The record is an 80-nucleotide sequence from Cnephaeus nilssonii, which matches "mir-574 microRNA precursor family" in Rfam.

[Rfam]
RNA sequence: AGGCCGAAGAGAGAGGCAGGGUCUGAUCCACAGCCUCCAUGGCAGCUGUUGAUAAGCUGCUGCCUCUCUCUUUCUUUGCC
Numbered sequence: 001a002g003g004c005c006g007a008a009g010a011g012a013g014a015g016g017c018a019g020g021g022u023c024u025g026a027u028c029c030a031c032a033g034c035c036u037c038c039a040u041g042g043c044a045g046c047u048g049u050u051g052a053u054a055a056g057c058u059g060c061u062g063c064c065u066c067u068c069u070c071u072u073u074c075u076u077u078g079c080c
Stems, first nucleotide, its partner, number of pairs: 007072013021058001023056002026053003031048004
The literature on the family includes a 2007 paper in Cancer Res by Lui et al., "Patterns of known and novel small RNAs in human cervical cancer". The source organism's lineage runs through Eukaryota, Chordata, Craniata, Teleostomi and Cnephaeus. Rfam links the family to the GO terms RISC complex and miRNA-mediated post-transcriptional gene silencing.